This 164-nucleotide RNA from Chrysochloris asiatica belongs to the Rfam family "U1 spliceosomal RNA".
Its Rfam clan is "U1 clan".
It scores 142 bits against the family's covariance model.
Rfam links the family to the GO terms pre-mRNA 5'-splice site binding, U1 snRNP and mRNA 5'-splice site recognition.
NCBI's taxonomy places the organism under Eukaryota, Opisthokonta, Deuterostomia, Afrosoricida, Chrysochloris.
U1 is a small nuclear RNA (snRNA) component of the spliceosome (involved in pre-mRNA splicing). Its 5' end forms complementary base pairs with the 5' splice junction, thus defining the 5' donor site of an intron. There are significant differences in sequence and secondary structure between metazoan and yeast U1 snRNAs, the latter being much longer (568 nucleotides as compared to 164 nucleotides in human). Nevertheless, secondary structure predictions suggest that all U1 snRNAs share a 'common core' consisting of helices I, II, the proximal region of III, and IV. This family does not contain the larger yeast sequences.
RNA sequence: AUACUUACCUGUCAGGGGAGAUACCAUGAUCAUAAAGGUGGUUUUCCCAGGGCGAGGCUUAUCCAUUGCACUCCAGAUGUGCUGACCCCUGCGAUUUCCACAAAUGUGGGAAAUUCGACUGCAUAAUCUGUGUUAAUGGGGGACUGCGUUGGCGCUCUCCCCUA
Dot-bracket structure: ............(((((((((.(((((..........)))))))))))((((.(.(((.((((............)))).)))..))))).((((((.((......)).)).).))).)))................((((((..(((....)))..)))))).